[Rfam]
RNA sequence: CCAGCCCCAUGAUGGUCUGUCUUCAAAGCCAGCUUGCUGGUGAGGCAGACCUGAAGAUCUGGCGUG
Number, nucleotide and partner (000 for none) at each position: 001c000002c066003a065004g000005c000006c000007c000008c000009a000010u000011g000012a000013u000014g051015g050016u049017c048018u047019g046020u045021c044022u043023u042024c000025a000026a000027a000028g000029c040030c039031a038032g000033c000034u000035u000036g000037c000038u031039g030040g029041u000042g023043a022044g021045g020046c019047a018048g017049a016050c015051c014052u000053g000054a000055a000056g000057a000058u000059c000060u000061g000062g000063c000064g000065u003066g002
This 66-nucleotide RNA from Aramus guarauna belongs to the Rfam family "Selenocysteine insertion sequence 1". It is annotated as a cis-regulatory element. Rfam describes the family as follows. The incorporation of selenocysteine into a protein sequence is directed by an in-frame UGA codon (usually a stop codon) within the coding region of the mRNA. Selenoprotein mRNAs contain a conserved secondary structure in the 3' UTR that is required for the distinction of UGA stop from UGA selenocysteine. The selenocysteine insertion sequence (SECIS) is around 60 nt in length and adopts a hairpin structure which is sufficiently well-defined and conserved to act as a computational screen for selenoprotein genes. A reference for the family is Walczak et al. (1996), "A novel RNA structural motif in the selenocysteine insertion element of eukaryotic selenoprotein mRNAs", RNA. The base pairs follow the family's consensus structure, which is taken from published work. Its family is annotated with selenocysteine incorporation in the Gene Ontology. The match comes from Rfam's covariance-model search (35 bits).